[Rfam]
RNA: GRIK4 3 prime UTR element
Organism: Myiagra hebetior
RNA sequence: UGGCUCAGGCAGGCAGAGAUGCUGCAGAGCUUUGGGAUGGAGGGGGAUGAGCAAGGGGAGAGCUGCUGUUAUCAAACAGGAAGCACUUUUUAA
Numbered sequence: 001u002g003g004c005u006c007a008g009g010c011a012g013g014c015a016g017a018g019a020u021g022c023u024g025c026a027g028a029g030c031u032u033u034g035g036g037a038u039g040g041a042g043g044g045g046g047a048u049g050a051g052c053a054a055g056g057g058g059a060g061a062g063c064u065g066c067u068g069u070u071a072u073c074a075a076a077c078a079g080g081a082a083g084c085a086c087u088u089u090u091u092a093a
Base pairs, nucleotide, nucleotide: 003052004051005050006049007048011032012031013030014029